[Rfam]
RNA sequence: CUGUCUCCUGCCUCAACAGUGUUUGGAUGGAAUAG
Numbered sequence: 001c002u003g004u005c006u007c008c009u010g011c012c013u014c015a016a017c018a019g020u021g022u023u024u025g026g027a028u029g030g031a032a033u034a035g
Stems, first nucleotide, its partner, number of pairs: 001035004006031003010028001013026004017021001
Iron response element I: a 35-nucleotide sequence from Microcebus murinus. The base pairs follow the family's consensus structure, which is taken from published work. NCBI's taxonomy places the organism under Eukaryota, Dipnotetrapodomorpha, Tetrapoda, Mammalia, Microcebus. Rfam classes the family as a cis-regulatory element.